[Rfam]
RNA sequence: GCUCUGCAUCACGAGUUGGGAAACCAUGCCAACCUGCCUAUUGCCGGCAAGGUGGAAUGCGCGUGCAGAUGCGGCUGUUGAUUUUUCGACGGUAAAUAUCGGCAUCACA
Numbered sequence: 001g002c003u004c005u006g007c008a009u010c011a012c013g014a015g016u017u018g019g020g021a022a023a024c025c026a027u028g029c030c031a032a033c034c035u036g037c038c039u040a041u042u043g044c045c046g047g048c049a050a051g052g053u054g055g056a057a058u059g060c061g062c063g064u065g066c067a068g069a070u071g072c073g074g075c076u077g078u079u080g081a082u083u084u085u086u087c088g089a090c091g092g093u094a095a096a097u098a099u100c101g102g103c104a105u106c107a108c109a
Base pairs, nucleotide, nucleotide: 006072007071008070009069010068015027017026018025019024029055030054033052034051035050036048037047038046040105041104044101074093075092076091077090078089079088080087081086
RNA: SAM-I/IV (S-adenosyl methionine) riboswitch aptamer